[Rfam]
RNA sequence: AGCUUCAAGGCGAAUAGUCACCCUGUGUGUGUGCGUGGCCGAUCGGUCUAGCCUUGAAGCUUGCU
Numbered sequence: 001a002g003c004u005u006c007a008a009g010g011c012g013a014a015u016a017g018u019c020a021c022c023c024u025g026u027g028u029g030u031g032u033g034c035g036u037g038g039c040c041g042a043u044c045g046g047u048c049u050a051g052c053c054u055u056g057a058a059g060c061u062u063g064c065u
Stems, first nucleotide, its partner, number of pairs: 001061011017034002019031003037048004

A member of the RNA family "DUF3800-IX RNA" from Sulfobacillus harzensis, 65 nucleotides long. Actinobacteria, Firmicutes (1 example), Nitrospirae, Proteobacteria, Verrucomicrobia (1 example). It scores 45 bits against the family's covariance model. The organism belongs to Sulfobacillus, within Bacteria.